Archaeal large subunit ribosomal RNA: a 582-nucleotide part of an RNA from Salinarchaeum sp. Harcht-Bsk1.
A search with the family's covariance model found it, with a score of 2832 bits.
Taxonomically the source falls in Salinarchaeum (Archaea, Methanobacteriota, Halobacteria, Halobacteriales).
The base pairs follow the family's consensus structure, which is taken from published work.
[Rfam]
Nucleotides: 582
Stems, first nucleotide, its partner, number of pairs: 001577007010569003014564002022398004027394002029390005035193004042185007051158003055154014078140005085123003100113005162173004196209001197207003210232006235338002241293006247273002250268006274283002298324009326335001328333001349376005356370004407448003411445001412442007422432002459534001460532004464526001465523005472497002476491005500512004540558004544553003
Number, partner (000 for none) and nucleotide at each position: 001577c002576c003575c004574c005573c006572a007571a008000g009000g010569g011568g012567a013000a014564g015563c016000g017000a018000a019000g020000a021000c022398c023397c024396u025395a026000u027394g028393g029390a030389g031388c032387u033386u034000u035193a036192c037191u038190g039000c040000a041000g042185g043184c044183u045182g046181u047180c048179g049000c050000u051158g052157g053156g054000a055154c056153a057152c058151g059150g060149u061148c062147g063146c064145u065144a066143g067142u068141g069000u070000g071000c072000a073000g074000g075000g076000u077000a078140g079139g080138u081137a082136g083000g084000a085123g086122u087121c088000a089000c090000u091000a092000c093000a094000c095000a096000g097000g098000u099000a100113c101112g102111u103110g104109c105000g106000c107000c108000a109104g110103c111102a112101c113100g114000c115000c116000a117000c118000c119000g120000a121087g122086a123085c124000a125000c126000a127000c128000a129000u130000g131000a132000a133000a134000c135000a136082c137081u138080a139079c140078c141068c142067a143066c144065u145064a146063g147062u148061g149060a150059c151058u152057g153056u154055g155000a156053c157052c158051c159000u160000c161000a162173c163172u164171c165170c166000g167000g168000g169000a170165g171164g172163a173162g174000g175000a176000c177000a178000c179048c180047g181046g182045u183044a184043g185042c186000c187000g188000g189000g190038c191037a192036g193035u194000u195000u196209g197207g198206c199205u200000g201000g202000g203000g204000c205199g206198g207197c208000a209196c210232g211231c212230g213229c214228u215227u216000g217000a218000a219000a220000a221000g222000a223000u224000a225000u226000c227215g228214a229213g230212c231211g232210c233000g234000c235338c236337c237000c238000a239000a240000g241293a242292u243291c244290a245289c246288c247273u248272c249000a250268c251267u252266c253265g254264g255263g256000u257000c258000g259000g260000a261000g262000a263255c264254c265253c266252g267251a268250g269000g270000a271000a272248g273247a274283g275282c276000g277000c278000a279000a280000g281000a282275g283274c284000a285000c286000a287000a288246g289245g290244u291243g292242g293241u294000c295000u296000g297000a298324c299323a300322g301321u302320g303319a304318c305317c306316g307000g308000c309000a310000c311000a312000a313000c314000a315000a316306c317305g318304g319303u320302c321301g322300c323299u324298g325000a326335c327000g328333c329000g330000a331000a332000a333328g334000c335326g336000u337236g338235g339000u340000c341000u342000a343000g344000c345000g346000a347000a348000c349376c350375a351374a352373u353372c354000a355000a356370g357369g358368u359367c360000c361000u362000c363000a364000a365000u366000g367359g368358g369357c370356c371000g372353g373352a374351u375350u376349g377000a378000u379000g380000a381000c382000a383000g384000a385000a386033a387032a388031g389030c390029u391000a392000c393028c394027c395025u396024a397023g398022g399000g400000a401000u402000a403000a404000c405000a406000g407448a408447g409446u410000c411445g412442u413441c414440a415439c416438u417437c418436g419000c420000a421000a422432g423431a424000g425000c426000u427000c428000a429000u430000a431423u432422c433000g434000a435000c436418c437417g438416a439415g440414u441413g442412g443000c444000u445411u446409g447408c448407u449000a450000c451000c452000u453000c454000g455000a456000u457000g458000u459534c460532g461531g462530u463529u464526c465523c466522c467521u468520c469519c470000a471000u472497c473496c474000u475000g476491c477490c478489c479488g480487u481000g482000c483000a484000g485000a486000a487480g488479c489478g490477g491476g492000c493000a494000a495000g496473g497472g498000u499000g500512a501511g502510g503509u504000u505000g506000u507000u508000c509503g510502c511501c512500u513000a514000u515000u516000a517000a518000a519469g520468g521467a522466g523465g524000u525000c526464g527000u528000g529463a530462g531461c532460u533000g534459g535000g536000u537000u538000u539000a540558g541557a542556c543555c544553g545552u546551c547000g548000u549000g550000a551546g552545a553544c554000a555543g556542g557541u558540c559000g560000g561000c562000u563015g564014c565000u566000a567012u568011c569010u570000a571007u572006u573005g574004g575003g576002g577001g578000u579000g580000u581000u582000u